This 365-nucleotide part of an RNA from an uncultured Atribacterota bacterium belongs to the Rfam family "Bacterial small subunit ribosomal RNA". The family is grouped with related families in Rfam's "SSU clan". The literature on the family includes a 2001 paper in Science by Yusupov et al., "Crystal structure of the ribosome at 5.5 A resolution".
[Rfam]
RNA sequence: GGAAUUAUUGGGCGUAAAGAGCUCGUAGACGGUUCGGAAAGUCAGCUGUGAAAUCACCAGGCUCAACCUGGUAGGGUCAGUUGAGACUUCCGAACUUGAGGGUAGAAGAGGAAAGUGGAAUUCCCGGUGUAGCGGUGAAAUGCGUAGAUAUCGGGAGGAACACCAGUGGCGAAGGCGGCUUUCUGGUCUACCCCUGACGUUGAGGAGCGAAAGCCAGGGGAGCAAACGGGAUUAGAUACCCCGGUAGUCCUGGCCCUAAACGAUGGAUACUAGGUGUAGGAGGUAUCGACCCCUUCUGUGCCGCAGUUAACACAUUAAGUAUCCCGCCUGGGGAGUACGGUCGCAAGGCUGAAACUCAAAGGAAU
Numbered sequence: 001g002g003a004a005u006u007a008u009u010g011g012g013c014g015u016a017a018a019g020a021g022c023u024c025g026u027a028g029a030c031g032g033u034u035c036g037g038a039a040a041g042u043c044a045g046c047u048g049u050g051a052a053a054u055c056a057c058c059a060g061g062c063u064c065a066a067c068c069u070g071g072u073a074g075g076g077u078c079a080g081u082u083g084a085g086a087c088u089u090c091c092g093a094a095c096u097u098g099a100g101g102g103u104a105g106a107a108g109a110g111g112a113a114a115g116u117g118g119a120a121u122u123c124c125c126g127g128u129g130u131a132g133c134g135g136u137g138a139a140a141u142g143c144g145u146a147g148a149u150a151u152c153g154g155g156a157g158g159a160a161c162a163c164c165a166g167u168g169g170c171g172a173a174g175g176c177g178g179c180u181u182u183c184u185g186g187u188c189u190a191c192c193c194c195u196g197a198c199g200u201u202g203a204g205g206a207g208c209g210a211a212a213g214c215c216a217g218g219g220g221a222g223c224a225a226a227c228g229g230g231a232u233u234a235g236a237u238a239c240c241c242c243g244g245u246a247g248u249c250c251u252g253g254c255c256c257u258a259a260a261c262g263a264u265g266g267a268u269a270c271u272a273g274g275u276g277u278a279g280g281a282g283g284u285a286u287c288g289a290c291c292c293c294u295u296c297u298g299u300g301c302c303g304c305a306g307u308u309a310a311c312a313c314a315u316u317a318a319g320u321a322u323c324c325c326g327c328c329u330g331g332g333g334a335g336u337a338c339g340g341u342c343g344c345a346a347g348g349c350u351g352a353a354a355c356u357c358a359a360a361g362g363a364a365u
Base pairs, nucleotide, nucleotide: 011328012327013326019325021208022207023206024205026202028201029200030199032095033094034093035092036091037090038089040088041087042084043083044082045081046080047079048078056072057071058070059069060068061067099195100194101193102191103190104189105188106187110184111183112182113181114180115179116178117161121157122156123155124154125153126152127151128150132143133142134141169176170175213254214253215252216251217250218249222248223247227243228242229241230240265324266323267322268321269320270319273302274301275300276299277298278297279296280295281294282293283292306313307312330357331356332355339350340349341348342347